[Rfam]
RNA: c-di-GMP-I-GGC riboswitch aptamer
Organism: Sulfurovum lithotrophicum
RNA sequence: AUUGAAAAAGCCAAACCUGUUGCAAAACAGGGACGGAAAGCCAUGGGACUCAUGAAGUUUGCCAGGUUAUCAUGC
Numbered sequence: 001a002u003u004g005a006a007a008a009a010g011c012c013a014a015a016c017c018u019g020u021u022g023c024a025a026a027a028c029a030g031g032g033a034c035g036g037a038a039a040g041c042c043a044u045g046g047g048a049c050u051c052a053u054g055a056a057g058u059u060u061g062c063c064a065g066g067u068u069a070u071c072a073u074g075c
Stems, first nucleotide, its partner, number of pairs: 003072002011036002016031006034061001039068004044064003047059003